[Rfam]
RNA sequence: CACUUAUCAAGAAAGGCAGAGGGAAAUGGCCCGGCGACGCCUUGGCAACCUGAAAUGCAUAGCAUUAAAAGGUGCUAACUCCAUCCCCAUCGCAAGAGCGGGAGAGAUAAGAC
Numbered sequence: 001c002a003c004u005u006a007u008c009a010a011g012a013a014a015g016g017c018a019g020a021g022g023g024a025a026a027u028g029g030c031c032c033g034g035c036g037a038c039g040c041c042u043u044g045g046c047a048a049c050c051u052g053a054a055a056u057g058c059a060u061a062g063c064a065u066u067a068a069a070a071g072g073u074g075c076u077a078a079c080u081c082c083a084u085c086c087c088c089a090u091c092g093c094a095a096g097a098g099c100g101g102g103a104g105a106g107a108u109a110a111g112a113c
Base pairs, nucleotide, nucleotide: 003111004110005109006108007107008106013043014042015041016040017039021032022031023030026084027083028082029081044076045075046074047073049072050071051068053066054065080105085102086101087100090097

Description: Rfam assigns this 113-nucleotide RNA sequence from Hanamia caeni to the family "SAM riboswitch aptamer (S box leader)". A search with the family's covariance model found it, with a score of 73 bits.